[Rfam]
RNA sequence: GUGCCUUAAACUUAUGAGUAGGGAAAAUAACGAUUCGGGGUGAUGCCCCAGUCCUCACUGCUUAUGUGAGACGAGUUUUUGAGUGGGUAAAGGUUGCUAUCUAAGGCGACCCGCCUACUUUGCGGGAUGCCUAAGUAAUGCGAUCUGCCCA
Number, nucleotide and partner (000 for none) at each position: 001g000002u000003g000004c023005c022006u021007u020008a019009a000010a000011c000012u000013u000014a000015u000016g000017a000018g000019u008020a007021g006022g005023g004024a000025a000026a000027a000028u000029a000030a000031c000032g053033a052034u051035u050036c000037g048038g047039g046040g000041u000042g000043a000044u000045g000046c039047c038048c037049c000050a035051g034052u033053c032054c070055u069056c068057a067058c066059u000060g000061c000062u000063u000064a000065u000066g058067u057068g056069a055070g054071a000072c000073g000074a000075g000076u000077u000078u000079u000080u000081g000082a000083g000084u151085g150086g149087g148088u147089a000090a000091a146092g145093g144094u143095u142096g141097c140098u000099a000100u000101c135102u134103a000104a132105g131106g130107c129108g128109a000110c126111c125112c124113g123114c122115c000116u000117a000118c000119u000120u000121u000122g114123c113124g112125g111126g110127a000128u108129g107130c106131c105132u104133a000134a102135g101136u000137a000138a000139u000140g097141c096142g095143a094144u093145c092146u091147g088148c087149c086150c085151a084
Annotation
Rfam assigns this 151-nucleotide sequence from Rattus norvegicus to the family "U12 minor spliceosomal RNA". The pairing is the family consensus, mapped onto this sequence. A search with the family's covariance model found it, with a score of 134 bits. The literature on the family includes a 1997 paper in Trends Biochem Sci by Tarn and Steitz, "Pre-mRNA splicing: the discovery of a new spliceosome doubles the challenge". Its Rfam clan is "U2 clan".